Annotation:
Rfam assigns this 110-nucleotide RNA from Planococcus lenghuensis to the family "PyrR binding site". The family has 41 seed sequences and 1,498 matches in Rfam 15.1. By type it is a cis-regulatory element. The source organism's lineage runs through Bacteria, Bacillota, Caryophanales, Caryophanaceae and Planococcus. This family represents the PyrR binding site and terminator structure. This RNA structure is found upstream of a variety of genes involved in pyrimidine biosynthesis and transport. The alignment also includes a portion of the antiterminator structure. A search with the family's covariance model found it, with a score of 66 bits.

RNA sequence: AUCACCUUUUAAUGAAUGUCCAGAGAGGCAUGGAAAGGUGGAGACGAGGGCAGUCCGAUCAUGCCCUUCUUUCCGCACACCUUCCUGUCCUCAGGAAGGUGUUUUUUUGC
Number, nucleotide and partner (000 for none) at each position: 001a000002u000003c040004a039005c038006c037007u036008u035009u034010u000011a000012a000013u000014g000015a000016a031017u030018g029019u028020c027021c000022a000023g000024a000025g000026a000027g020028g019029c018030a017031u016032g000033g000034a009035a008036a007037g006038g005039u004040g003041g073042a072043g071044a070045c000046g068047a067048g066049g065050g064051c063052a062053g000054u000055c000056c000057g000058a000059u000060c000061a000062u052063g051064c050065c049066c048067u047068u046069c000070u044071u043072u042073c041074c000075g104076c000077a102078c101079a100080c099081c098082u097083u096084c095085c094086u093087g092088u000089c000090c000091u000092c087093a086094g085095g084096a083097a082098g081099g080100u079101g078102u077103u000104u075105u000106u000107u000108u000109g000110c000